Rfam assigns this 90-nucleotide RNA from Branchiostoma belcheri to the family "mir-2060 microRNA precursor family". Taxonomically the source falls in Branchiostoma (Eukaryota, Opisthokonta, Chordata, Branchiostomatidae).
RNA sequence: GUUUGCCCGUGUGUGGAAGGUGUUCAGCACCAAGGACAGGUGUGUUUGCCUGUGUGUGGAAGGUGUUCAGCACAAAGGACAGGUUUGCCU
Dot-bracket structure: ....(((.((.........(((((.((((((..(.(((((((....))))))).)......)))))).))))).....)).)))......
Numbered sequence: 001g002u003u004u005g006c007c008c009g010u011g012u013g014u015g016g017a018a019g020g021u022g023u024u025c026a027g028c029a030c031c032a033a034g035g036a037c038a039g040g041u042g043u044g045u046u047u048g049c050c051u052g053u054g055u056g057u058g059g060a061a062g063g064u065g066u067u068c069a070g071c072a073c074a075a076a077g078g079a080c081a082g083g084u085u086u087g088c089c090u
Stems, first nucleotide, its partner, number of pairs: 005084003009080002020073005026067006034055001036053007